tRNA: an 83-nucleotide sequence from Tolypothrix sp. NIES-4075. The organism belongs to Tolypothrix, within Bacteria. It is annotated as a transfer RNA. It scores 49 bits against the family's covariance model. The family's consensus secondary structure is taken from published work.
[Rfam]
RNA sequence: GCGGAUGUGGCGGAAUUGGUAUACGCGCACGCUUGAGGUGCGUGUGGGCAAUGCCCUUGCGAGUUCGAGUCUCACCAUCCGCA
Numbered sequence: 001g002c003g004g005a006u007g008u009g010g011c012g013g014a015a016u017u018g019g020u021a022u023a024c025g026c027g028c029a030c031g032c033u034u035g036a037g038g039u040g041c042g043u044g045u046g047g048g049c050a051a052u053g054c055c056c057u058u059g060c061g062a063g064u065u066c067g068a069g070u071c072u073c074a075c076c077a078u079c080c081g082c083a
Base pairs, nucleotide, nucleotide: 001082002081003080004079005078006077007076010026011025012024028044029043030042031041032040059075061073062072063071